[Rfam]
RNA: Mammalian CPEB3 ribozyme
Organism: Alligator sinensis
RNA sequence: AGUGUUCAGGCUGAUUUGCAGAAGUGUUCACAUUGUAGCCCCUGUCAGAUUCCAACAAAUCUGCAGAUUCUGCU
Dot-bracket structure: ........[[[[.....(((((((((.......)))]].]]....((((((......))))))....)))))).